[Rfam]
RNA sequence: UGCACUGCAUGGUAUCUGUAUUCAGCAGUUUAUUCUUGCUGGGUGUUCAAAACACAGUGCUAAUAUAAAUUGAGUACCCGGCAUCAUUGUUUUUCUUGGCUUUGUGCAUGUUAGGCCAGUAUUUUUACUUACACAGUA
Numbered sequence: 001u002g003c004a005c006u007g008c009a010u011g012g013u014a015u016c017u018g019u020a021u022u023c024a025g026c027a028g029u030u031u032a033u034u035c036u037u038g039c040u041g042g043g044u045g046u047u048c049a050a051a052a053c054a055c056a057g058u059g060c061u062a063a064u065a066u067a068a069a070u071u072g073a074g075u076a077c078c079c080g081g082c083a084u085c086a087u088u089g090u091u092u093u094u095c096u097u098g099g100c101u102u103u104g105u106g107c108a109u110g111u112u113a114g115g116c117c118a119g120u121a122u123u124u125u126u127a128c129u130u131a132c133a134c135a136g137u138a
Stems, first nucleotide, its partner, number of pairs: 002060006017051001018046011064127002067124004071119001074117001081107004

The family of this 138-nucleotide RNA sequence from Bos indicus x Bos taurus is "Small nucleolar RNA SNORA8".
The family has 5 seed sequences and 1,490 matches in Rfam 15.1.
Rfam classes the family as an H/ACA-box small nucleolar RNA.
The source organism's lineage runs through Eukaryota, Deuterostomia, Euteleostomi, Artiodactyla and Bos.
From the family's description: ACA8 is a member of the H/ACA class of snoRNA that guide the sites of modification of uridines to pseudouridines.